RNA sequence: GGUUGUAAUUCCGGCAACCCGGAGGCGUUCUGGACAGGGGUUCGAUUCCCCUCACCUCCACCCAAGUGCAUUUCAUGCUGUCGCUAGUGUGUUUGGGUGGGGGUGUACUGGUUUCGACAGGGCGGGCAAAGGUGCGCAGGCAACCCGAGAGGCGACGGACGUAAUCCGCGCAAAACCACAAACGCCAACGAUGAGCGUUUCGCAGUCGCUGCAUAA
Numbered sequence: 001g002g003u004u005g006u007a008a009u010u011c012c013g014g015c016a017a018c019c020c021g022g023a024g025g026c027g028u029u030c031u032g033g034a035c036a037g038g039g040g041u042u043c044g045a046u047u048c049c050c051c052u053c054a055c056c057u058c059c060a061c062c063c064a065a066g067u068g069c070a071u072u073u074c075a076u077g078c079u080g081u082c083g084c085u086a087g088u089g090u091g092u093u094u095g096g097g098u099g100g101g102g103g104u105g106u107a108c109u110g111g112u113u114u115c116g117a118c119a120g121g122g123c124g125g126g127c128a129a130a131g132g133u134g135c136g137c138a139g140g141c142a143a144c145c146c147g148a149g150a151g152g153c154g155a156c157g158g159a160c161g162u163a164a165u166c167c168g169c170g171c172a173a174a175a176c177c178a179c180a181a182a183c184g185c186c187a188a189c190g191a192u193g194a195g196c197g198u199u200u201c202g203c204a205g206u207c208g209c210u211g212c213a214u215a216a
Base pairs, nucleotide, nucleotide: 001145002144003143004142005141014135015134016133026124027123028122030120031119032118036052037051038050039049040048053105054104055103056102057101058100059099060098061097062096063095064094065093066092146161147160
This 216-nucleotide sequence from Thauera linaloolentis belongs to the Rfam family "permuted transfer-messenger RNA". The match comes from Rfam's covariance-model search (169 bits). It is annotated as a non-coding RNA gene. Lineage of the source: Bacteria > Pseudomonadati > Pseudomonadota > Betaproteobacteria > Thauera linaloolentis. Rfam describes the family as follows. Bacterial tmRNA, also known as 10Sa RNA or SsrA, is named for its dual tRNA and mRNA-like properties. Its role is to liberate the mRNA from a stalled ribosome. To accomplish this part of the tmRNA is used as a reading frame that ends in a translation stop signal. The broken mRNA is replaced in the ribosome by the tmRNA and translation of the tmRNA leads to addition of a proteolysis tag to the incomplete protein enabling recognition by a protease. Recently a number of permuted tmRNA genes have been found encoded in two parts. tmRNAs have been identified in eubacteria and some chloroplasts but are absent from archaeal and eukaryote nuclear genomes.